[Rfam]
RNA sequence: CUUGACGGAGCCGAGCCACAACGGCCGUUCCCGGCCCUGCCCGUACGUGGCCAGGACCGCCUGGGCCUC
Numbered sequence: 001c002u003u004g005a006c007g008g009a010g011c012c013g014a015g016c017c018a019c020a021a022c023g024g025c026c027g028u029u030c031c032c033g034g035c036c037c038u039g040c041c042c043g044u045a046c047g048u049g050g051c052c053a054g055g056a057c058c059g060c061c062u063g064g065g066c067c068u069c
Base pairs, nucleotide, nucleotide: 015025016024017023031065032059033058037054038053039052041050042049043048
Shown here is a 69-nucleotide RNA from Micromonospora echinofusca, a member of the family "ASpks TB sRNA". Rfam classes the family as an antisense RNA. The organism belongs to Micromonospora, within Bacteria. The match comes from Rfam's covariance-model search (73 bits).